[Rfam]
RNA sequence: GCAAAGCCGAGCUAGGGUUCCGGCCGGAUCAAAAAUCCGGCGCUGGUCCGAGAGCUUCAGCCGCGCGGGAGACAUCCGCGCGGUCCACGGCGGGACAAAAGCCCGGGAGAG
Numbered sequence: 001g002c003a004a005a006g007c008c009g010a011g012c013u014a015g016g017g018u019u020c021c022g023g024c025c026g027g028a029u030c031a032a033a034a035a036u037c038c039g040g041c042g043c044u045g046g047u048c049c050g051a052g053a054g055c056u057u058c059a060g061c062c063g064c065g066c067g068g069g070a071g072a073c074a075u076c077c078g079c080g081c082g083g084u085c086c087a088c089g090g091c092g093g094g095a096c097a098a099a100a101g102c103c104c105g106g107g108a109g110a111g
Base pairs, nucleotide, nucleotide: 009057010056011055012054015049016048020046021045022043023041024040025039026038027037028036060084061083062082063081064080065079066078067077086106088109092104093103094102

Guanidine-I riboswitch aptamer: a 111-nucleotide sequence from Acidiphilium cryptum. On this family, see Barrick et al., Proc Natl Acad Sci U S A 2004: "New RNA motifs suggest an expanded scope for riboswitches in bacterial genetic control". About the family: This family represents a conserved RNA structure found upstream of the ykkC and yxkD genes in Bacillus subtilis and related genes in other bacteria. Taxonomically the source falls in Acidiphilium cryptum (Bacteria, Pseudomonadota, Alphaproteobacteria, Acidiphilium). It is one of the family's seed sequences.